[Rfam]
RNA: Plant signal recognition particle RNA
RNA sequence: GGGGCAUUAAGGUGGUGGGACGUGGUCUUGGGAUCCUUGGGGUCGGGCUUCGAUUGGCAACCAUCUGGCCCGCCCGUUCCAAGCCGGGAGUUGGCCCAUGCGGCCCGUGCGAAGGCUCGGGCCUCGUGCGGCACUAGAGUGGAGGGGACAGCGUGAGGCUGGCUUCACAGAGCAGCGAAAGCCUCCCGCUCUCGGCAGUGGAAGGAUAACAGGCCGGCGCCGGUGAGGCCCAUAAACGGCUCAAAGGACAAGUUCUACUGAACCACCACCUUU
Number, nucleotide and partner (000 for none) at each position: 001g000002g000003g000004g000005c000006a000007u000008u000009a272010a271011g270012g269013u268014g267015g266016u265017g264018g263019g000020a000021c260022g259023u257024g256025g255026u000027c252028u251029u250030g249031g000032g000033a000034u000035c247036c246037u245038u244039g000040g242041g241042g240043u239044c238045g231046g230047g229048c228049u227050u226051c225052g224053a000054u000055u222056g221057g220058c000059a000060a000061c000062c000063a000064u000065c217066u216067g215068g214069c213070c212071c000072g210073c000074c205075c204076g000077u203078u202079c201080c200081a199082a000083g196084c195085c194086g193087g192088g191089a190090g189091u188092u000093g000094g132095c131096c130097c128098a127099u126100g125101c000102g123103g122104c121105c120106c119107g118108u000109g116110c115111g000112a000113a000114g000115g110116c109117u000118c107119g106120g105121g104122c103123c102124u000125c100126g099127u098128g097129c000130g096131g095132c094133a000134c139135u000136a000137g000138a000139g134140u000141g186142g185143a184144g183145g182146g000147g000148a000149c000150a000151g000152c177153g176154u175155g000156a000157g000158g000159c170160u169161g168162g000163c000164u000165u000166c000167a000168c161169a160170g159171a000172g000173c000174a000175g154176c153177g152178a000179a000180a000181g000182c145183c144184u143185c142186c141187c000188g091189c090190u089191c088192u087193c086194g085195g084196c083197a000198g000199u081200g080201g079202a078203a077204g075205g074206a000207u000208a000209a000210c072211a000212g070213g069214c068215c067216g066217g065218c000219g000220c057221c056222g055223g000224u052225g051226a050227g049228g048229c047230c046231c045232a000233u000234a000235a000236a000237c000238g044239g043240c042241u041242c040243a000244a038245a037246g036247g035248a000249c030250a029251a028252g027253u000254u000255c025256u024257a023258c000259u022260g021261a000262a000263c018264c017265a016266c015267c014268a013269c012270c011271u010272u009273u000